[Rfam]
A member of the RNA family "raiA RNA", 161 nucleotides long. Rfam classes the family as a riboswitch.

RNA sequence: GCUGCCCGGGUCUGUGGCUGCAAGUCCAGGCCAGCUAUGGGCAAAGGGACCCACGUAAGCAGGAGCAAGGCUCCUUGUGAUCAUGGCAUAGCUUAGAAGUAAGUCCGCGGUAAAACCGGGAACGGCAGGUGUGGGGUCAAAGGCCAGGUCAGCCGGGCAGC
Number, nucleotide and partner (000 for none) at each position: 001g161002c160003u159004g158005c157006c156007c155008g154009g153010g000011u000012c152013u151014g150015u146016g145017g144018c143019u142020g000021c000022a000023a000024g000025u000026c000027c000028a132029g000030g130031c041032c000033a093034g092035c091036u090037a089038u088039g087040g000041g031042c000043a000044a000045a000046g000047g000048g000049a000050c086051c085052c000053a000054c000055g081056u000057a000058a078059g000060c000061a075062g073063g072064a000065g000066c000067a000068a000069g000070g000071c000072u063073c062074c000075u061076u000077g000078u058079g000080a000081u055082c000083a000084u139085g051086g050087c039088a038089u037090a036091g035092c034093u033094u000095a000096g000097a000098a000099g000100u000101a000102a000103g000104u000105c125106c124107g123108c118109g117110g116111u115112a000113a000114a000115a111116c110117c109118g108119g000120g000121a000122a000123c107124g106125g105126c000127a000128g000129g000130u030131g000132u028133g000134g000135g000136g000137u000138c000139a084140a000141a000142g019143g018144c017145c016146a015147g000148g000149u000150c014151a013152g012153c009154c008155g007156g006157g005158c004159a003160g002161c001